[Rfam]
RNA sequence: ACUUAUAUAGUGUAGCAAAAUGGGCUACAGACUCCACCCCUUGCCAAACGUAGGGACUAUAGGU
Numbered sequence: 001a002c003u004u005a006u007a008u009a010g011u012g013u014a015g016c017a018a019a020a021u022g023g024g025c026u027a028c029a030g031a032c033u034c035c036a037c038c039c040c041u042u043g044c045c046a047a048a049c050g051u052a053g054g055g056a057c058u059a060u061a062g063g064u
Stems, first nucleotide, its partner, number of pairs: 001064007008036001011029006022045002030037001038055004